[Rfam]
RNA sequence: AAUUAAUAUUGGCAAAGCCAGCGAAAGUUGGUGACGCAAAGCUGUGAGUCUAAAGCAUAAUUUGCUAUGGCAGUCAAGUUGCAAUC
Numbered sequence: 001a002a003u004u005a006a007u008a009u010u011g012g013c014a015a016a017g018c019c020a021g022c023g024a025a026a027g028u029u030g031g032u033g034a035c036g037c038a039a040a041g042c043u044g045u046g047a048g049u050c051u052a053a054a055g056c057a058u059a060a061u062u063u064g065c066u067a068u069g070g071c072a073g074u075c076a077a078g079u080u081g082c083a084a085u086c
Stems, first nucleotide, its partner, number of pairs: 012037002017032006040080004045076003048071003055065003